[Rfam]
RNA: mir-71 microRNA precursor family
RNA sequence: GUCUGGUGAAAGACAUGGGUAGUGAGAUUGUGAUUAUUAAAGACCAUCUUGCUAGCCUGUCUCUCAUCCUGAA
Numbered sequence: 001g002u003c004u005g006g007u008g009a010a011a012g013a014c015a016u017g018g019g020u021a022g023u024g025a026g027a028u029u030g031u032g033a034u035u036a037u038u039a040a041a042g043a044c045c046a047u048c049u050u051g052c053u054a055g056c057c058u059g060u061c062u063c064u065c066a067u068c069c070u071g072a073a
Stems, first nucleotide, its partner, number of pairs: 008065002011062005017057002021053008